[Rfam]
RNA sequence: CUCGUGUCAUACGACUGACGGAAGUGGAGUUUACCACAGGGAGUAUUGAUUGUUGAAGAGCCGACCGUCUGGGCCACCCCC
Number, nucleotide and partner (000 for none) at each position: 001c000002u000003c052004g051005u000006g000007u048008c000009a046010u045011a044012c043013g000014a000015c040016u039017g069018a068019c067020g066021g065022a000023a000024g037025u036026g035027g034028a000029g000030u000031u000032u000033a000034c027035c026036a025037c024038a000039g016040g015041g000042a000043g012044u011045a010046u009047u000048g007049a000050u000051u004052g003053u000054u000055g000056a000057a000058g000059a000060g074061c073062c072063g000064a000065c021066c020067g019068u018069c017070u000071g000072g062073g061074c060075c000076a000077c000078c000079c000080c000081c000
This 81-nucleotide RNA sequence from Sharpea azabuensis belongs to the Rfam family "ZMP/ZTP riboswitch aptamer (pfl RNA motif)". The match comes from Rfam's covariance-model search (50 bits). The source organism's lineage runs through Bacteria, Erysipelotrichia, Erysipelotrichales, Coprobacillaceae and Sharpea. Pairs were carried over by alignment from the consensus structure, which is taken from published work.